[Rfam]
RNA: small nucleolar RNA snoR143
RNA sequence: GUUCAAUAGCAACUGUGCAAAAAUCAAAAUUUGAUUUUGCUUCUUUGGAAAUAAAGAAAACAGAGCGGCCAAACAACCAUAGGGAUGGCAUCCACAGAUUAAGGGCAAUUCUAUCCCUCUGUCUACUGAUUCCAUCUCACUUUU
Dot-bracket structure: .(((((.(((.........(((((((.....))))))))))...)))))................................(((((((.(.........((((((.........)))).)).........))))))))......